The family of this 150-nucleotide RNA from Carlito syrichta is "U12 minor spliceosomal RNA". The family has 62 seed sequences and 2,106 matches in Rfam 15.1.

[Rfam]
RNA sequence: AUGGCCUAAACGUAUAAGUAAGGAAAAUAAUGAUUCAGCAUGAUGCCUGAAUACUCACUGCUAAUGUGAGAUGAAUAUUUGAUCAAGUAAAGGUUGCCCCUAAGGUAACCCUCCUAUUUUGAGGGAUGCCUGGAGGUCAUGAUCUGCCCA
Number, nucleotide and partner (000 for none) at each position: 001a000002u000003g000004g000005c022006c000007u020008a019009a000010a000011c000012g000013u000014a000015u000016a000017a000018g000019u008020a007021a000022g005023g000024a000025a000026a000027a000028u000029a000030a000031u000032g000033a052034u051035u050036c049037a048038g047039c000040a000041u000042g000043a000044u000045g000046c000047c038048u037049g036050a035051a034052u033053a000054c070055u069056c068057a067058c066059u000060g000061c000062u000063a000064a000065u000066g058067u057068g056069a055070g054071a000072u000073g000074a000075a000076u000077a000078u000079u000080u000081g000082a000083u000084c000085a000086a000087g147088u146089a000090a000091a145092g144093g143094u142095u141096g140097c000098c000099c000100c000101u133102a000103a131104g130105g129106u128107a127108a000109c125110c124111c123112u122113c121114c000115u000116a000117u000118u000119u000120u000121g113122a112123g111124g110125g109126a000127u107128g106129c105130c104131u103132g000133g101134a000135g000136g000137u000138c000139a000140u096141g095142a094143u093144c092145u091146g088147c087148c000149c000150a000

A reference for the family is Otake et al. (2002), "The divergent U12-type spliceosome is required for pre-mRNA splicing and is essential for development in Drosophila", Mol Cell. Pairs were carried over by alignment from the consensus structure. Taxonomically the source falls in Carlito (Eukaryota, Chordata, Sarcopterygii, Primates). It is annotated as a spliceosomal small nuclear RNA.